RNA sequence: AGCAUCAAAGGAUAAAUGCUUGAAACAAUCUUAGGGAACCUUCUAACACAUCGCUAUUGUGUCGCGGUGUGGAUGAGAAGGCAGUUCUUUUCUGAUGGUGUU
Numbered sequence: 001a002g003c004a005u006c007a008a009a010g011g012a013u014a015a016a017u018g019c020u021u022g023a024a025a026c027a028a029u030c031u032u033a034g035g036g037a038a039c040c041u042u043c044u045a046a047c048a049c050a051u052c053g054c055u056a057u058u059g060u061g062u063c064g065c066g067g068u069g070u071g072g073a074u075g076a077g078a079a080g081g082c083a084g085u086u087c088u089u090u091u092c093u094g095a096u097g098g099u100g101u102u
Base pairs, nucleotide, nucleotide: 001102002101003100004099005098006097007096047053

The record is a 102-nucleotide RNA sequence from Zea mays, which matches "Small nucleolar RNA snoR31/Z110/Z27" in Rfam. Gene Ontology terms of the family: nucleolus and RNA processing. By type it is a C/D-box small nucleolar RNA. A reference for the family is Barneche et al. (2001), "Identification of 66 box C/D snoRNAs in Arabidopsis thaliana: extensive gene duplications generated multiple isoforms predicting new ribosomal RNA 2'-O-methylation sites", J Mol Biol. From the family's description: This family contains several related snoRNAs including R31, Z27 and Z110. The base pairs follow the family's consensus structure, which was predicted with PFOLD. The match comes from Rfam's covariance-model search (54 bits).